This 129-nucleotide RNA sequence from Phyllostomus discolor belongs to the Rfam family "Small nucleolar RNA SNORA42/SNORA80 family". For this family Rfam cites "A computational screen for mammalian pseudouridylation guide H/ACA RNAs" (Schattner et al., RNA, 2006). Rfam's curators write: The members of this family belong to the H/ACA class of snoRNAs that guide the sites of modification of uridines to pseudouridines. Human ACA42 (SNORA42) was cloned from HeLa cells by immunoprecipitation with anti-GAR1 antibody. Its is predicted to guide the pseudouridylation of residues U109 and U572 of 18S rRNA. ACA42 shares the same host gene with ACA26, ACA46, ACA50. This family also includes mammalian snoRNA ACA67 (SNORA80) which was identified by computational screening and its expression in mouse experimentally verified by Northern blot and primer extension analysis. ACA67 is proposed to guide the pseudouridylation of the same 18S rRNA residues as ACA42.

RNA sequence: GCAUGGGUUUGGAUUUAUGGUAGGCCCAUCCUGGGUCUCUCAUAGUGCCCCUUGCUAGAGCAAACUGUCCUUGAAUAAUUGCUGGACAUCUGCCUGUAAGCUUCAGGCACUGAAGCAGAUUACACAGUG
Numbered sequence: 001g002c003a004u005g006g007g008u009u010u011g012g013a014u015u016u017a018u019g020g021u022a023g024g025c026c027c028a029u030c031c032u033g034g035g036u037c038u039c040u041c042a043u044a045g046u047g048c049c050c051c052u053u054g055c056u057a058g059a060g061c062a063a064a065c066u067g068u069c070c071u072u073g074a075a076u077a078a079u080u081g082c083u084g085g086a087c088a089u090c091u092g093c094c095u096g097u098a099a100g101c102u103u104c105a106g107g108c109a110c111u112g113a114a115g116c117a118g119a120u121u122a123c124a125c126a127g128u129g
Base pairs, nucleotide, nucleotide: 001055002054003053005050006049007048008047015045016044017043018042019041020040022038023037024036025034026033066122067121070118071117078111082107083106084103085102087100089098